[Rfam]
RNA sequence: GUUGGCCUAUGAUGCAACAUUUGCCUACAUUGUCUGAUUGUCUUAUCAGUGACUGAUAACAAUGUAAUACUGAGGCCUUU
Numbered sequence: 001g002u003u004g005g006c007c008u009a010u011g012a013u014g015c016a017a018c019a020u021u022u023g024c025c026u027a028c029a030u031u032g033u034c035u036g037a038u039u040g041u042c043u044u045a046u047c048a049g050u051g052a053c054u055g056a057u058a059a060c061a062a063u064g065u066a067a068u069a070c071u072g073a074g075g076c077c078u079u080u
Stems, first nucleotide, its partner, number of pairs: 001080001004077004
This 80-nucleotide RNA sequence from Acer saccharum belongs to the Rfam family "Small nucleolar RNA SNORD34". Its family is annotated with RNA processing and nucleolus in the Gene Ontology. The source organism's lineage runs through Eukaryota, Mesangiospermae, eudicotyledons, Gunneridae and Acer. Clan: SNORD34 clan. The family's consensus secondary structure was predicted with PFOLD. Rfam 15.1 lists 1,319 matches to the family in 583 species.